This 178-nucleotide RNA sequence from Nostoc sp. PCC 7120 = FACHB-418 belongs to the Rfam family "Antisense RNA which regulates isiA expression". The organism belongs to Nostoc, within Bacteria. Pairs were carried over by alignment from the consensus structure, which was predicted with PFOLD.
RNA sequence: AAUAACCGAAAAUUAUGCCUGGGUUAAGAGUAGGGUUAGUAAUCGAGCGUACAUCUCCCAAAUUAGUGUCAUAAAUGCCGCCAAAAAACAUGGCUUUUAGCACUAGUAAGAAUGCUCCUAAACCCAGAAUAAUUAGGUGAUGUCCUAAAAUCAAACUCAAUUGUUUAGGGUCAUUCCA
Dot-bracket structure: .......................................................................................................................................((((((..(((((................)))))))))))...
Numbered sequence: 001a002a003u004a005a006c007c008g009a010a011a012a013u014u015a016u017g018c019c020u021g022g023g024u025u026a027a028g029a030g031u032a033g034g035g036u037u038a039g040u041a042a043u044c045g046a047g048c049g050u051a052c053a054u055c056u057c058c059c060a061a062a063u064u065a066g067u068g069u070c071a072u073a074a075a076u077g078c079c080g081c082c083a084a085a086a087a088a089c090a091u092g093g094c095u096u097u098u099a100g101c102a103c104u105a106g107u108a109a110g111a112a113u114g115c116u117c118c119u120a121a122a123c124c125c126a127g128a129a130u131a132a133u134u135a136g137g138u139g140a141u142g143u144c145c146u147a148a149a150a151u152c153a154a155a156c157u158c159a160a161u162u163g164u165u166u167a168g169g170g171u172c173a174u175u176c177c178a
Stems, first nucleotide, its partner, number of pairs: 136175006144169005